The family of this 128-nucleotide sequence from Halicephalobus sp. NKZ332 is "Nematode snoRNA ceN39". A search with the family's covariance model found it, with a score of 35 bits. The base pairs follow the family's consensus structure, which was predicted with RNAalifold. A reference for the family is Jia et al. (2007), "Systematic identification of non-coding RNA 2,2,7-trimethylguanosine cap structures in Caenorhabditis elegans", BMC Mol Biol. Lineage of the source: Eukaryota > Bilateria > Rhabditida > Panagrolaimoidea > Halicephalobus. Its family is annotated with RNA processing and nucleolus in the Gene Ontology.

[Rfam]
RNA sequence: UAGGCAGAUAGGAACCAGGUCGGAGUUUAAUCUCUUGUUUGGGCCGAUAACCUGCCAAUAGUAGGACAGAACUAUGGUCGCACAAUGCCUUACAUAGACUUUGUGCAUUACCCUGUUGUGUAACAAGU
Number, nucleotide and partner (000 for none) at each position: 001u000002a000003g056004g055005c054006a053007g052008a000009u000010a000011g045012g044013a000014a000015c042016c041017a040018g039019g038020u037021c000022g035023g034024a033025g032026u000027u000028u000029a000030a000031u000032c025033u024034c023035u022036u000037g020038u019039u018040u017041g016042g015043g000044c012045c011046g000047a000048u000049a000050a000051c000052c007053u006054g005055c004056c003057a000058a000059u000060a000061g000062u000063a000064g000065g117066a116067c115068a114069g113070a000071a000072c000073u000074a000075u000076g112077g111078u110079c000080g106081c105082a000083c103084a102085a101086u000087g099088c000089c000090u097091u096092a000093c000094a000095u000096a091097g090098a000099c087100u000101u085102u084103g083104u000105g081106c080107a000108u000109u000110a078111c077112c076113c069114u068115g067116u066117u065118g000119u000120g000121u000122a000123a000124c000125a000126a000127g000128u000